RNA sequence: CUCACGGAUUCGUUAGAGAAAUCAUAUUGCUGCCCAAUUUCGGUCAGGCCCCCGCCCUGCUGACAGUUAGAAUGCCUAUAGUUGCCUCAGGCCCGGUCUCGCGAGAGCACCGGAUUCCUCAGCCCCCCAGCCCCCCGGGGCUUGAGCGGACCGGGCCAGUUGUUUCGUAAGGUUCAAUCCCCCAACGCUUCAAGGCCGGCUUAACCGCCGGCCUUUUU
Numbered sequence: 001c002u003c004a005c006g007g008a009u010u011c012g013u014u015a016g017a018g019a020a021a022u023c024a025u026a027u028u029g030c031u032g033c034c035c036a037a038u039u040u041c042g043g044u045c046a047g048g049c050c051c052c053c054g055c056c057c058u059g060c061u062g063a064c065a066g067u068u069a070g071a072a073u074g075c076c077u078a079u080a081g082u083u084g085c086c087u088c089a090g091g092c093c094c095g096g097u098c099u100c101g102c103g104a105g106a107g108c109a110c111c112g113g114a115u116u117c118c119u120c121a122g123c124c125c126c127c128c129a130g131c132c133c134c135c136c137g138g139g140g141c142u143u144g145a146g147c148g149g150a151c152c153g154g155g156c157c158a159g160u161u162g163u164u165u166c167g168u169a170a171g172g173u174u175c176a177a178u179c180c181c182c183c184a185a186c187g188c189u190u191c192a193a194g195g196c197c198g199g200c201u202u203a204a205c206c207g208c209c210g211g212c213c214u215u216u217u218u
Base pairs, nucleotide, nucleotide: 036174040048041047083167084166090157091156092155093154094153095152096151097150098149099148102146105143106142107141108140110138111137112136113135122131123130193214194213195212196211197210198209199208200207
RNA: Bradyrhizobiaceae sRNA BjrC174
Organism: Rugositalea oryzae